[Rfam]
RNA: Small nucleolar RNA SNORD103/SNORD85
Organism: Herpetotheres cachinnans
RNA sequence: UCUGGCGAUGACGACACGCUUGCCCUCACUGAGAACUGUGUUCACUGAUGAGAGCAGUUCUAUGCGCUCAGUAGAGCUGAGCCAGA
Numbered sequence: 001u002c003u004g005g006c007g008a009u010g011a012c013g014a015c016a017c018g019c020u021u022g023c024c025c026u027c028a029c030u031g032a033g034a035a036c037u038g039u040g041u042u043c044a045c046u047g048a049u050g051a052g053a054g055c056a057g058u059u060c061u062a063u064g065c066g067c068u069c070a071g072u073a074g075a076g077c078u079g080a081g082c083c084a085g086a
Base pairs, nucleotide, nucleotide: 001086002085003084004083005082006081
Dot-bracket structure: ((((((..........................................................................))))))